[Rfam]
RNA: SAM-I/IV (S-adenosyl methionine) riboswitch aptamer
RNA sequence: ACCCAUCAUUAAGAGAGGACUGACGUCCCGCCAACCUGCCUUUUCCGGCAAGGUGGUAGCCUUAGUUAGGCGAUGAGACCCUUGGGUAACUAAUGGAUCAUCA
Numbered sequence: 001a002c003c004c005a006u007c008a009u010u011a012a013g014a015g016a017g018g019a020c021u022g023a024c025g026u027c028c029c030g031c032c033a034a035c036c037u038g039c040c041u042u043u044u045c046c047g048g049c050a051a052g053g054u055g056g057u058a059g060c061c062u063u064a065g066u067u068a069g070g071c072g073a074u075g076a077g078a079c080c081c082u083u084g085g086g087u088a089a090c091u092a093a094u095g096g097a098u099c100a101u102c103a
Stems, first nucleotide, its partner, number of pairs: 006076005015029001017028004030057003035053003038049003043097003078087003